[Rfam]
RNA sequence: GCACGUAUAGCUCAGCAGGAUAGAGCGACUGACUUCGGAUCAGUAGGCCGAGGGUUCGAAUCCUUCUGCGUGUG
Numbered sequence: 001g002c003a004c005g006u007a008u009a010g011c012u013c014a015g016c017a018g019g020a021u022a023g024a025g026c027g028a029c030u031g032a033c034u035u036c037g038g039a040u041c042a043g044u045a046g047g048c049c050g051a052g053g054g055u056u057c058g059a060a061u062c063c064u065u066c067u068g069c070g071u072g073u074g
Base pairs, nucleotide, nucleotide: 001073002072003071004070005069006068007067010026011025012024013023028044029043030042031041032040050066051065052064053063054062